Shown here is a 102-nucleotide RNA from Alicyclobacillus sp. SO9, a member of the family "c-di-GMP-I riboswitch aptamer".
[Rfam]
RNA sequence: AUAUGUAAAGGGCAUACCAACGGAAACGUUGGGGCGCAAAGCUGAGGGUCUACGGAAUGGAAACCAAUGGGAAACCCAUUCUAUGACAGUCUGGCCGCGAUU
Number, nucleotide and partner (000 for none) at each position: 001a000002u000003a000004u000005g000006u000007a000008a000009a000010g000011g000012g037013c036014a000015u000016a000017c032018c031019a030020a029021c028022g027023g000024a000025a000026a000027c022028g021029u020030u019031g018032g017033g000034g000035c000036g013037c012038a000039a000040a000041g095042c094043u093044g000045a092046g091047g090048g087049u086050c085051u000052a000053c000054g000055g081056a080057a079058u078059g077060g076061a000062a000063a000064c000065c000066a000067a000068u000069g000070g000071g000072a000073a000074a000075c000076c060077c059078a058079u057080u056081c055082u000083a000084u000085g050086a049087c048088a000089g000090u047091c046092u045093g043094g042095c041096c000097g000098c000099g000100a000101u000102u000